[Rfam]
RNA sequence: CUCGGCAUGUUCCUGCCGAUUCCUACGUGAGCGUGCUACCAUUGCGCUGAUGAUGGGGUGCGAAGCCUCACGGACAAUGUACCGAAUUGGAUCGAAAUGGUGACAUGAAGAUCCUUCAGGGAAGCCUCCCCUGUUAAGGGC
Numbered sequence: 001c002u003c004g005g006c007a008u009g010u011u012c013c014u015g016c017c018g019a020u021u022c023c024u025a026c027g028u029g030a031g032c033g034u035g036c037u038a039c040c041a042u043u044g045c046g047c048u049g050a051u052g053a054u055g056g057g058g059u060g061c062g063a064a065g066c067c068u069c070a071c072g073g074a075c076a077a078u079g080u081a082c083c084g085a086a087u088u089g090g091a092u093c094g095a096a097a098u099g100g101u102g103a104c105a106u107g108a109a110g111a112u113c114c115u116u117c118a119g120g121g122a123a124g125c126c127u128c129c130c131c132u133g134u135u136a137a138g139g140g141c
Base pairs, nucleotide, nucleotide: 002019003018004017005016006015007014027071028070029069030068031067032062033061034060035059036058037057039056040055041054042053043052044051089114090113091112092111098105099104117133118132119131120130121129